[Rfam]
Nucleotides: 143
Stems, first nucleotide, its partner, number of pairs: 002057005010049002014043003017039007025032001063142001068133001072130002076127002083122002086119004091114003095110001
Number, partner (000 for none) and nucleotide at each position: 001000u002057g003056c004055a005054a006053g007000c008000g009000c010049a011048c012000u013000c014043u015042g016041u017039g018038u019037c020036a021035c022034g023033u024000u025032g026000a027000u028000a029000u030000c031000a032025c033023a034022u035021g036020u037019g038018a039017u040000g041016a042015c043014a044000a045000u046000u047000u048011g049010u050000a051000a052000a053006c054005u055004u056003g057002c058000u059000a060000a061000a062000u063142u064000a065000a066000a067000c068133g069000u070000a071000a072130g073129c074000u075000g076127c077126g078000a079000c080000u081000u082000a083122u084121c085000c086119a087118u088117g089116u090000g091114c092113u093112c094000a095110a096000g097000u098000c099000u100000u101000a102000a103000a104000c105000u106000c107000c108000a109000a110095u111000u112093g113092a114091g115000g116089a117088c118087a119086u120000u121084g122083a123000a124000u125000g126077c127076g128000c129073g130072c131000c132000u133068u134000a135000c136000a137000a138000a139000g140000c141000c142063a143000a
Description:
The record is a 143-nucleotide sequence from Drosophila busckii, which matches "Small nucleolar RNA psi18S-841/snoR66" in Rfam. psi18S-841 is a member of the H/ACA class of snoRNA. This family is responsible for guiding the modification of uridine 841 in Drosophila 18S rRNA to pseudouridine. NCBI's taxonomy places the organism under Eukaryota, Panarthropoda, Pancrustacea, Insecta, Dorsilopha. Gene Ontology terms of the family: nucleolus and RNA processing. By type it is an H/ACA-box small nucleolar RNA. The base pairs follow the family's consensus structure, which was predicted with RNAfold.